[Rfam]
RNA sequence: UUCUUAUCACGAGAGGUGCAAGAGUAGAUCCUGAUGAAACCUCGGUAACAGGUGGAUCUACACAGUGCCUAUUCCUGCAGAUUAUUGUCUGAAAGAUAAGAA
Numbered sequence: 001u002u003c004u005u006a007u008c009a010c011g012a013g014a015g016g017u018g019c020a021a022g023a024g025u026a027g028a029u030c031c032u033g034a035u036g037a038a039a040c041c042u043c044g045g046u047a048a049c050a051g052g053u054g055g056a057u058c059u060a061c062a063c064a065g066u067g068c069c070u071a072u073u074c075c076u077g078c079a080g081a082u083u084a085u086u087g088u089c090u091g092a093a094a095g096a097u098a099a100g101a102a
Stems, first nucleotide, its partner, number of pairs: 001102008013043005021032002023029001025077003044069004049065001051061001054058001073094001078091005

Source information: A member of the RNA family "SAM riboswitch aptamer (S box leader)" from Oceanobacillus piezotolerans, 102 nucleotides long. A search with the family's covariance model found it, with a score of 59 bits. Lineage of the source: Bacteria > Bacillati > Bacillota > Caryophanales > Oceanobacillus. The family's consensus secondary structure is taken from published work.